[Rfam]
The family of this 103-nucleotide RNA sequence from Haematospirillum jordaniae is "sRNA-Xcc1".
RNA sequence: GGCGGGAGGGCGGCGAAUACAACACCCGCAAGGGAAAUAAGCCCGCUCGACUGCCUGACCUUUGCCAGUGCAUCUCGGGUUUUUUGCCUCCCGCCACCAGCGG
Numbered sequence: 001g002g003c004g005g006g007a008g009g010g011c012g013g014c015g016a017a018u019a020c021a022a023c024a025c026c027c028g029c030a031a032g033g034g035a036a037a038u039a040a041g042c043c044c045g046c047u048c049g050a051c052u053g054c055c056u057g058a059c060c061u062u063u064g065c066c067a068g069u070g071c072a073u074c075u076c077g078g079g080u081u082u083u084u085u086g087c088c089u090c091c092c093g094c095c096a097c098c099a100g101c102g103g
Stems, first nucleotide, its partner, number of pairs: 001095009012043003016038001025034003045080006

It is annotated as a small RNA.